[Rfam]
RNA sequence: UAAUGUAACCAGAAAAAAGAAGCUCUGCGUCAACAGGACUUCCCAUGUAGAGCCGUUUAAGACGGUGGUAAUUUUAACGAUAUUUGAUA
Number, nucleotide and partner (000 for none) at each position: 001u000002a000003a000004u000005g000006u000007a000008a000009c000010c000011a000012g000013a000014a000015a000016a000017a000018a000019g000020a000021a000022g000023c000024u037025c036026u035027g034028c000029g000030u000031c000032a000033a000034c027035a026036g025037g024038a000039c000040u000041u000042c000043c000044c000045a000046u000047g000048u000049a000050g000051a000052g066053c065054c064055g063056u062057u061058u000059a000060a000061g057062a056063c055064g054065g053066u052067g000068g000069u000070a000071a000072u000073u000074u000075u000076a000077a000078c000079g000080a000081u000082a000083u000084u000085u000086g000087a000088u000089a000